A member of the RNA family "Edr gene ribosomal frameshift signal", 69 nucleotides long. Gene Ontology term of the family: translational frameshifting. By type it is a frameshift element.

RNA sequence: GGGAAACUCCCCGGCCCCGCUGUAGAGGGACCUUCAGCGACCGAACCAGCUUAGGCAAAAGAGUCCCCA
Numbered sequence: 001g002g003g004a005a006a007c008u009c010c011c012c013g014g015c016c017c018c019g020c021u022g023u024a025g026a027g028g029g030a031c032c033u034u035c036a037g038c039g040a041c042c043g044a045a046c047c048a049g050c051u052u053a054g055g056c057a058a059a060a061g062a063g064u065c066c067c068c069a
Base pairs, nucleotide, nucleotide: 013047014046017043018039019038020037021036022035027067028066029065030064031063033061034060